[Rfam]
Source information:
A member of the RNA family "Small nucleolar RNA F1/F2/snoR5a" from Eragrostis curvula, 137 nucleotides long. This family contains F1, F2 and snoR5a sequences, all of which are members of the the H/ACA class of snoRNA that guide the sites of modification of uridines to pseudouridines. Rfam 15.1 lists 325 matches to the family in 97 species.

RNA sequence: AAAUGCCAUUGGUAUCUGAUGCGUGGUCUCUUCCAUGACCUCGCGUCUCGUAAGAGUGGCAGACAGAAAGGGGACGGGUUCUUUGCGACACGGUUGCUCGUACAUGAGCUUCCUGUUACUAUUCCCCCGUAACAUUC
Numbered sequence: 001a002a003a004u005g006c007c008a009u010u011g012g013u014a015u016c017u018g019a020u021g022c023g024u025g026g027u028c029u030c031u032u033c034c035a036u037g038a039c040c041u042c043g044c045g046u047c048u049c050g051u052a053a054g055a056g057u058g059g060c061a062g063a064c065a066g067a068a069a070g071g072g073g074a075c076g077g078g079u080u081c082u083u084u085g086c087g088a089c090a091c092g093g094u095u096g097c098u099c100g101u102a103c104a105u106g107a108g109c110u111u112c113c114u115g116u117u118a119c120u121a122u123u124c125c126c127c128c129g130u131a132a133c134a135u136u137c
Base pairs, nucleotide, nucleotide: 004061005060006059007058008057018047019046020045021044022043023042025040026039027038028037074130075129076128077127078126090116091115092113093112096109097108098107

The source organism's lineage runs through Eukaryota, Euphyllophyta, Poales, Chloridoideae and Eragrostis.